[Rfam]
The record is a 96-nucleotide RNA from Rhodovulum adriaticum, which matches "TPP riboswitch aptamer (THI element)" in Rfam.
NCBI's taxonomy places the organism under Bacteria, Alphaproteobacteria, Rhodobacterales, Paracoccaceae, Rhodovulum.
RNA sequence: CACACACGACAGGGGCGUCCGGAUCAUCCGGGCUGAGAAGUACCCUUUGAACCUGAACCAGAUCAUGCUGGCGGAGGGAGUCGCGGAUGCCUUGCC
Numbered sequence: 001c002a003c004a005c006a007c008g009a010c011a012g013g014g015g016c017g018u019c020c021g022g023a024u025c026a027u028c029c030g031g032g033c034u035g036a037g038a039a040g041u042a043c044c045c046u047u048u049g050a051a052c053c054u055g056a057a058c059c060a061g062a063u064c065a066u067g068c069u070g071g072c073g074g075a076g077g078g079a080g081u082c083g084c085g086g087a088u089g090c091c092u093u094g095c096c
Base pairs, nucleotide, nucleotide: 007083008082009081010080011046012045013044014043016040017033018032019031020030021029052077053076054075058071059070060069061068